Rfam assigns this 123-nucleotide RNA sequence from Kaistia soli to the family "Alphaproteobacterial ar14". The organism belongs to Kaistia soli, within Bacteria. By type it is a small RNA. From the family's description: Smr14C2 was renamed NfeR1 (Nodule Formation Efficiency RNA) highly expressed in salt stress and during the symbiotic interaction on legume roots.
RNA sequence: AGAAUUCGCCGGGAACGAACCUCCUCCCUCGUUCCCCGCGAUUGGCGCGCGGCUGACCUCCUCCCCAGCCCAGCGCCCUUUAUAGAGACGCCCGUCGACCUCCUCCCCGACGGGCGUCUUUUU
Numbered sequence: 001a002g003a004a005u006u007c008g009c010c011g012g013g014a015a016c017g018a019a020c021c022u023c024c025u026c027c028c029u030c031g032u033u034c035c036c037c038g039c040g041a042u043u044g045g046c047g048c049g050c051g052g053c054u055g056a057c058c059u060c061c062u063c064c065c066c067a068g069c070c071c072a073g074c075g076c077c078c079u080u081u082a083u084a085g086a087g088a089c090g091c092c093c094g095u096c097g098a099c100c101u102c103c104u105c106c107c108c109g110a111c112g113g114g115c116g117u118c119u120u121u122u123u
Stems, first nucleotide, its partner, number of pairs: 007040003011036007044077005051070003087118011